[Rfam]
Rfam assigns this 81-nucleotide RNA from Pomatostomus ruficeps to the family "mir-199 microRNA precursor family". Gene Ontology terms of the family: miRNA-mediated post-transcriptional gene silencing and RISC complex. This family consists of the microRNA (miRNA) precursor mir-199 which appears to be specific to humans. Animal miRNAs are transcribed as ~70nt precursors and subsequently processed by the Dicer enzyme to give a ~22nt product. In this case the mature sequence comes from the 3' arm of the precursor. The extents of the hairpin precursors are not generally known and are estimated based on hairpin prediction. The organism belongs to Pomatostomus, within Eukaryota.
RNA sequence: GCGCCGGCGCUCCCAGUGUUCAGACUACCUGUUCAGGCGGACGGGGAUGUACAGUAGUCUGCACAUUGGUUACGCCGGCGC
Numbered sequence: 001g002c003g004c005c006g007g008c009g010c011u012c013c014c015a016g017u018g019u020u021c022a023g024a025c026u027a028c029c030u031g032u033u034c035a036g037g038c039g040g041a042c043g044g045g046g047a048u049g050u051a052c053a054g055u056a057g058u059c060u061g062c063a064c065a066u067u068g069g070u071u072a073c074g075c076c077g078g079c080g081c
Base pairs, nucleotide, nucleotide: 013069014068015067016066017065018064019063021061022060023059024058025057026056027055029054030053031052032051034049035048